[Rfam]
RNA sequence: GGCCCAUUAACUCAGUUGGUUAGAGCGUCGUGCUAAUAACGCGAAGGUCGCAGGUUCGAGACGUGCAUGGGCCA
Dot-bracket structure: (((((((...(((.........)))..(((((.......))))).....(((.(.......).)))))))))).